[Rfam]
RNA sequence: AAAUUACAUAGGCAAAAUUAAGGAAACUUAAUGACGCAAAGCUAUAGGGACUAAGGUGGUAAACUAUGUCUGCCAGUUGCUAAA
Numbered sequence: 001a002a003a004u005u006a007c008a009u010a011g012g013c014a015a016a017a018u019u020a021a022g023g024a025a026a027c028u029u030a031a032u033g034a035c036g037c038a039a040a041g042c043u044a045u046a047g048g049g050a051c052u053a054a055g056g057u058g059g060u061a062a063a064c065u066a067u068g069u070c071u072g073c074c075a076g077u078u079g080c081u082a083a084a
Stems, first nucleotide, its partner, number of pairs: 012037002017032006040078004047074002049070003056064002
The record is an 84-nucleotide sequence from Clostridium sp. SM-530-WT-3G, which matches "c-di-GMP-I riboswitch aptamer" in Rfam.
The match comes from Rfam's covariance-model search (72 bits).
The organism belongs to Clostridium, within Bacteria.
Gene Ontology term of the family: cyclic-di-GMP binding.